The family of this 115-nucleotide RNA from Clostridium sp. DSM 8431 is "FMN riboswitch aptamer (RFN element)".
Pairs were carried over by alignment from the consensus structure, which is taken from published work.

RNA sequence: AGAAUUCUUCGGGGCAGGGUGAAAUUCCCUACUGGCGGUACAGCCCGCGAGCUAUAAUAGCAGAUUCGGUUAAAUUCCGAAGCCAACAGUAAAGUCUGGAUGAAAGAAGAGUAUA
Numbered sequence: 001a002g003a004a005u006u007c008u009u010c011g012g013g014g015c016a017g018g019g020u021g022a023a024a025u026u027c028c029c030u031a032c033u034g035g036c037g038g039u040a041c042a043g044c045c046c047g048c049g050a051g052c053u054a055u056a057a058u059a060g061c062a063g064a065u066u067c068g069g070u071u072a073a074a075u076u077c078c079g080a081a082g083c084c085a086a087c088a089g090u091a092a093a094g095u096c097u098g099g100a101u102g103a104a105a106g107a108a109g110a111g112u113a114u115a
Base pairs, nucleotide, nucleotide: 004112005111006110007109008108009107010106017029018028019027031095032094033085034084035048036047037046038045043083044082051061052060053059065081066080067079068078069077087098088097089096